Rfam assigns this 78-nucleotide RNA sequence from Tinamus guttatus to the family "Small nucleolar RNA SNORD69".
From the family's description: snoRNA HBII-210 belongs to the C/D family of snoRNAs.
Rfam links the family to the GO terms nucleolus and RNA processing.
The family has 11 seed sequences and 524 matches in Rfam 15.1.
RNA sequence: UACACAAAGCAUAUGAUGAGAAAGCAUAAAAGCUGACUCCGUGUGAAGCGUAUUCAAUCCAACCCUGAGCUUUGUGUC
Numbered sequence: 001u002a003c004a005c006a007a008a009g010c011a012u013a014u015g016a017u018g019a020g021a022a023a024g025c026a027u028a029a030a031a032g033c034u035g036a037c038u039c040c041g042u043g044u045g046a047a048g049c050g051u052a053u054u055c056a057a058u059c060c061a062a063c064c065c066u067g068a069g070c071u072u073u074g075u076g077u078c
Stems, first nucleotide, its partner, number of pairs: 002077009